[Rfam]
RNA sequence: AGCUUACCAGUGAUGUCCAAAAAUAAAUGUCUGAACAAAUGACUGUCCAGUGAUAUGACCGAUUUGACCUGAGGUAAGCC
Numbered sequence: 001a002g003c004u005u006a007c008c009a010g011u012g013a014u015g016u017c018c019a020a021a022a023a024u025a026a027a028u029g030u031c032u033g034a035a036c037a038a039a040u041g042a043c044u045g046u047c048c049a050g051u052g053a054u055a056u057g058a059c060c061g062a063u064u065u066g067a068c069c070u071g072a073g074g075u076a077a078g079c080c
Stems, first nucleotide, its partner, number of pairs: 002079007
The family of this 80-nucleotide RNA from Carassius auratus is "Small nucleolar RNA SNORD72".
Its family is annotated with nucleolus and RNA processing in the Gene Ontology.
The organism belongs to Carassius, within Eukaryota.
The pairing is the family consensus, mapped onto this sequence.
The match comes from Rfam's covariance-model search (63 bits).
snoRNA HBII-240 belongs to the CD family of snoRNAs. It is the human orthologue of the mouse MBII-240 and is predicted to guide 2'O-ribose methylation of the large 28S rRNA at residue U4590.